[Rfam]
The family of this 233-nucleotide RNA from Ktedonobacter racemifer is "HNH endonuclease-associated RNA and ORF (HEARO) RNA". The match comes from Rfam's covariance-model search (118 bits). On this family, see Weinberg et al., Nature 2009: "Exceptional structured noncoding RNAs revealed by bacterial metagenome analysis". The organism belongs to Ktedonobacter racemifer, within Bacteria. It is annotated as a non-coding RNA gene.

RNA sequence: GUCAUGAACCCCGGUUUUUCAAACCGGGGCUUGCUGAGCGGUUCGCCGCUGAGCAGGCCCUCAUGAGCAGACUCAGUUUGGAGCUUGCUCCGAGCUCUGUUCGCGACGAAAUUAGGUACCAGUGGGUGCGAGGCCAGCCCGCUGCUCUACGGCGAUGGGUUAAACAGGCUGAGGGGUAAAGCCAGUGCUCAUCGCGCUAAACCGUCGCUGAACCUUGUCGAGGCCAACAUCAC
Numbered sequence: 001g002u003c004a005u006g007a008a009c010c011c012c013g014g015u016u017u018u019u020c021a022a023a024c025c026g027g028g029g030c031u032u033g034c035u036g037a038g039c040g041g042u043u044c045g046c047c048g049c050u051g052a053g054c055a056g057g058c059c060c061u062c063a064u065g066a067g068c069a070g071a072c073u074c075a076g077u078u079u080g081g082a083g084c085u086u087g088c089u090c091c092g093a094g095c096u097c098u099g100u101u102c103g104c105g106a107c108g109a110a111a112u113u114a115g116g117u118a119c120c121a122g123u124g125g126g127u128g129c130g131a132g133g134c135c136a137g138c139c140c141g142c143u144g145c146u147c148u149a150c151g152g153c154g155a156u157g158g159g160u161u162a163a164a165c166a167g168g169c170u171g172a173g174g175g176g177u178a179a180a181g182c183c184a185g186u187g188c189u190c191a192u193c194g195c196g197c198u199a200a201a202c203c204g205u206c207g208c209u210g211a212a213c214c215u216u217g218u219c220g221a222g223g224c225c226a227a228c229a230u231c232a233c
Stems, first nucleotide, its partner, number of pairs: 002066006010029002012026002016023002030057006070219003075096008099213005104207005116150002120144008132225004152195009164186002167183004172177001